[Rfam]
RNA sequence: CUGUAGAGAUUAUCAGGCCUCAUUCUACCUUCCAAGGCUCUGAGACUUGGAAGGUAGAAUGAGGCCUGACAAUAUCUGCAG
Numbered sequence: 001c002u003g004u005a006g007a008g009a010u011u012a013u014c015a016g017g018c019c020u021c022a023u024u025c026u027a028c029c030u031u032c033c034a035a036g037g038c039u040c041u042g043a044g045a046c047u048u049g050g051a052a053g054g055u056a057g058a059a060u061g062a063g064g065c066c067u068g069a070c071a072a073u074a075u076c077u078g079c080a081g
Stems, first nucleotide, its partner, number of pairs: 001081007009073002013069020